RNA: Small nucleolar RNA SNORA8
RNA sequence: UGCACUGGAUGUAUCUGCACCCAUGGUGACUCCUGUUGGGGUGUUCAAUAGGCAGUGCUACAAUAACCCAGUAACUGGCAUCGUUGGUUGGAAGCUCCGCGUUUCUAAACCUGGUUUUUAUGCUGGAACAUGU
Numbered sequence: 001u002g003c004a005c006u007g008g009a010u011g012u013a014u015c016u017g018c019a020c021c022c023a024u025g026g027u028g029a030c031u032c033c034u035g036u037u038g039g040g041g042u043g044u045u046c047a048a049u050a051g052g053c054a055g056u057g058c059u060a061c062a063a064u065a066a067c068c069c070a071g072u073a074a075c076u077g078g079c080a081u082c083g084u085u086g087g088u089u090g091g092a093a094g095c096u097c098c099g100c101g102u103u104u105c106u107a108a109a110c111c112u113g114g115u116u117u118u119u120a121u122g123c124u125g126g127a128a129c130a131u132g133u
Stems, first nucleotide, its partner, number of pairs: 002058006014052003017044006023037001024035001025033001061122002065118002068114004077103003081099001